Rfam assigns this 68-nucleotide sequence from Alligator sinensis to the family "mir-367 microRNA precursor family".
RNA sequence: CUGCUACUGUUGCUAAUAUGCAACUCUGUUACGUCAAAAUUGGAAUUGCACUUUAGCAAUGGUGAUGG
Numbered sequence: 001c002u003g004c005u006a007c008u009g010u011u012g013c014u015a016a017u018a019u020g021c022a023a024c025u026c027u028g029u030u031a032c033g034u035c036a037a038a039a040u041u042g043g044a045a046u047u048g049c050a051c052u053u054u055a056g057c058a059a060u061g062g063u064g065a066u067g068g
Base pairs, nucleotide, nucleotide: 005064006063007062008061009060010059011058012057013056014055015054016053019050020049021048022047023046025044026043027042028041

Lineage of the source: Eukaryota > Craniata > Teleostomi > Alligatorinae > Alligator. The literature on the family includes a 2006 paper in Nucleic Acids Res by Mineno et al., "The expression profile of microRNAs in mouse embryos". Pairs were carried over by alignment from the consensus structure, which was predicted with RNAalifold. Rfam links the family to the GO terms RISC complex and miRNA-mediated post-transcriptional gene silencing.